Bacterial antisense RNA HPnc0260: a 149-nucleotide RNA from Helicobacter saguini. The literature on the family includes a 2010 paper in Nature by Sharma et al., "The primary transcriptome of the major human pathogen Helicobacter pylori".
RNA sequence: AUUUUAAUAAGAUAAAAUGGCUUAAUAGAAAGUCUAUCUUACAAACAAUUUGCAUUAAAUGUCUAUGAAUCUUAAAAUAUUGAAGUUGCAUUAGUGUUAAAGUAUACCAGUGGUGGUUGCGACUGGACUCGAACCAGCGACCCCUACCA
Numbered sequence: 001a002u003u004u005u006a007a008u009a010a011g012a013u014a015a016a017a018u019g020g021c022u023u024a025a026u027a028g029a030a031a032g033u034c035u036a037u038c039u040u041a042c043a044a045a046c047a048a049u050u051u052g053c054a055u056u057a058a059a060u061g062u063c064u065a066u067g068a069a070u071c072u073u074a075a076a077a078u079a080u081u082g083a084a085g086u087u088g089c090a091u092u093a094g095u096g097u098u099a100a101a102g103u104a105u106a107c108c109a110g111u112g113g114u115g116g117u118u119g120c121g122a123c124u125g126g127a128c129u130c131g132a133a134c135c136a137g138c139g140a141c142c143c144c145u146a147c148c149a
Stems, first nucleotide, its partner, number of pairs: 014039001016037001020033004111146003115142002120139002123137004
Taxonomically the source falls in Helicobacter (Bacteria, Pseudomonadati, Campylobacterota, Epsilonproteobacteria).